[Rfam]
RNA sequence: GAAGUCCGGGCUGGGUGAGGGUCCUUUUGUCCCUAACCCUACUUUAGAAGGGCGUAGGCGCCGUGCUUUUGUUCCCUGCCUGCUGUUUUUUUCGCUGGCUUUCAGCAGGCGGAAAAGCCUCGGCCUACCGCCGUCCACCAUGCGGUCUAAACCAAAUUAAAAAAUGUCAGCGGCUGGCCAGCUCACCCGCCCCGGGAACCUGUGGUGCACGCCUGCCCAGCCCCCGCGUCCUGCCUGGAGGCCGCGGUCGGCCUGGGACUUCCCCGGAGGUUUCCGAUGCCGCCGCGAAGAGUUGGGCUCUGUCAGCCGCGGGUUUCUCGGGGGCAAGGGAAAGGCCCUGGCCGCAGGGAGAGAAACGGAGCGGGUCCCCGCGCGUGGUGCAUUUCCUUGAGCUGUGGGACUUGCAUCCGGGACUAAGCUCAAACAUAC
Numbered sequence: 001g002a003a004g005u006c007c008g009g010g011c012u013g014g015g016u017g018a019g020g021g022u023c024c025u026u027u028u029g030u031c032c033c034u035a036a037c038c039c040u041a042c043u044u045u046a047g048a049a050g051g052g053c054g055u056a057g058g059c060g061c062c063g064u065g066c067u068u069u070u071g072u073u074c075c076c077u078g079c080c081u082g083c084u085g086u087u088u089u090u091u092u093c094g095c096u097g098g099c100u101u102u103c104a105g106c107a108g109g110c111g112g113a114a115a116a117g118c119c120u121c122g123g124c125c126u127a128c129c130g131c132c133g134u135c136c137a138c139c140a141u142g143c144g145g146u147c148u149a150a151a152c153c154a155a156a157u158u159a160a161a162a163a164a165u166g167u168c169a170g171c172g173g174c175u176g177g178c179c180a181g182c183u184c185a186c187c188c189g190c191c192c193c194g195g196g197a198a199c200c201u202g203u204g205g206u207g208c209a210c211g212c213c214u215g216c217c218c219a220g221c222c223c224c225c226g227c228g229u230c231c232u233g234c235c236u237g238g239a240g241g242c243c244g245c246g247g248u249c250g251g252c253c254u255g256g257g258a259c260u261u262c263c264c265c266g267g268a269g270g271u272u273u274c275c276g277a278u279g280c281c282g283c284c285g286c287g288a289a290g291a292g293u294u295g296g297g298c299u300c301u302g303u304c305a306g307c308c309g310c311g312g313g314u315u316u317c318u319c320g321g322g323g324g325c326a327a328g329g330g331a332a333a334g335g336c337c338c339u340g341g342c343c344g345c346a347g348g349g350a351g352a353g354a355a356a357c358g359g360a361g362c363g364g365g366u367c368c369c370c371g372c373g374c375g376u377g378g379u380g381c382a383u384u385u386c387c388u389u390g391a392g393c394u395g396u397g398g399g400a401c402u403u404g405c406a407u408c409c410g411g412g413a414c415u416a417a418g419c420u421c422a423a424a425c426a427u428a429c
Base pairs, nucleotide, nucleotide: 005196006195007194008193009192010191012189013188014187015186016185017184018183020179021178022177023176065118066117067116068115069114077111078110079109080108081107082106083105084104085103094171095170096169097168098167099166100164101163102162199348200347201346202345203344204343205342211336212335213334214332216330217329218328220325221324222323223322224321225320226319230313231312232311233310234309243287244286245285246284247283249282250281251280252279255275256274257273289301290300291299292298359421360420361419362418364415365414366413367412368411369410378407379406380405381404382403385400386399387398388397
Shown here is a 429-nucleotide sequence from Hipposideros armiger, a member of the family "Vertebrate telomerase RNA". Rfam 15.1 lists 523 matches to the family in 477 species. Its family is annotated with telomerase catalytic core complex, telomere maintenance via telomerase and telomerase activity in the Gene Ontology. By type it is a non-coding RNA gene. The family is grouped with related families in Rfam's "Telomerase clan". Telomerase is a ribonucleoprotein reverse transcriptase that synthesises telomeric DNA. Telomerase RNAs differ greatly in sequence and structure between vertebrates, ciliates and yeasts, but they share a 5' pseudoknot structure close to the template sequence. Vertebrate telomerase RNAs have a 3' H/ACA snoRNA-like domain. Pairs were carried over by alignment from the consensus structure, which is taken from published work.